RNA sequence: GUUCAGGUUGCCUAGGGUUCCGCGGCUGAAGUCCAGCCGGUCUGGUCCGAGAGGGAACGAUGCGGAGCACGGAUCCGCAUUCACACGGAGGGACAAAAGCCCGGGAGAU
Numbered sequence: 001g002u003u004c005a006g007g008u009u010g011c012c013u014a015g016g017g018u019u020c021c022g023c024g025g026c027u028g029a030a031g032u033c034c035a036g037c038c039g040g041u042c043u044g045g046u047c048c049g050a051g052a053g054g055g056a057a058c059g060a061u062g063c064g065g066a067g068c069a070c071g072g073a074u075c076c077g078c079a080u081u082c083a084c085a086c087g088g089a090g091g092g093a094c095a096a097a098a099g100c101c102c103g104g105g106a107g108a109u
Stems, first nucleotide, its partner, number of pairs: 007058003011054002015048002020045002022042001023039006059082001060080007084104001086107001090102003
Dot-bracket structure: ......(((.((..((...(((((((((.....))))))..).)).))....)).)))((((((((.......))))))).).(.[...(((.......))).)..]..